[Rfam]
RNA sequence: GGAUUACUCCUUUACGCUUUCGCGUUUGGUUGAUAAAGAUUCGCACCUCUAUCAAACCGGGUAAUCCCACCUCUUGGCAAGACCUGCUGUCAGAUCAAAUCUGAACUACUACACAUUAUGUAACUGGGCUAGGGGGGUGGACUCACCUCGGCUAUCUACCGGAUCUAUCAUCACCCAGAUCUGCCCGAUAUGGUCAAUCAACCGGUUU
Numbered sequence: 001g002g003a004u005u006a007c008u009c010c011u012u013u014a015c016g017c018u019u020u021c022g023c024g025u026u027u028g029g030u031u032g033a034u035a036a037a038g039a040u041u042c043g044c045a046c047c048u049c050u051a052u053c054a055a056a057c058c059g060g061g062u063a064a065u066c067c068c069a070c071c072u073c074u075u076g077g078c079a080a081g082a083c084c085u086g087c088u089g090u091c092a093g094a095u096c097a098a099a100u101c102u103g104a105a106c107u108a109c110u111a112c113a114c115a116u117u118a119u120g121u122a123a124c125u126g127g128g129c130u131a132g133g134g135g136g137g138u139g140g141a142c143u144c145a146c147c148u149c150g151g152c153u154a155u156c157u158a159c160c161g162g163a164u165c166u167a168u169c170a171u172c173a174c175c176c177a178g179a180u181c182u183g184c185c186c187g188a189u190a191u192g193g194u195c196a197a198u199c200a201a202c203c204g205g206u207u208u
Base pairs, nucleotide, nucleotide: 001067002066003065004064005063006062007061009060010059014025015024016023017022028058029057030056031055032053033052034051035050037048038047069206070205075161076160077159081156082155089106090105091103092102093101094100095099109151110150113148178199179198180197182196183195184193185192
A member of the RNA family "Proteobacterial sRNA psRNA2" from Nitrosomonas europaea, 208 nucleotides long. The source organism's lineage runs through Bacteria, Pseudomonadati, Pseudomonadota, Nitrosomonas and Nitrosomonas europaea. The family's RNA type in Rfam is small RNA. For this family Rfam cites "Computational prediction and transcriptional analysis of sRNAs in Nitrosomonas europaea" (Gvakharia et al., FEMS Microbiol Lett, 2010).